[Rfam]
RNA sequence: GGGGAUUACAAUGAGGAUACAAAGCUCCCUCUUCUGAAUUAGUAUGAGGUAACUCUGCUGGCAGAAUCGAACCUAAUUAAAUAUCAUGCCAUCUGAGUAA
Numbered sequence: 001g002g003g004g005a006u007u008a009c010a011a012u013g014a015g016g017a018u019a020c021a022a023a024g025c026u027c028c029c030u031c032u033u034c035u036g037a038a039u040u041a042g043u044a045u046g047a048g049g050u051a052a053c054u055c056u057g058c059u060g061g062c063a064g065a066a067u068c069g070a071a072c073c074u075a076a077u078u079a080a081a082u083a084u085c086a087u088g089c090c091a092u093c094u095g096a097g098u099a100a
Stems, first nucleotide, its partner, number of pairs: 006100004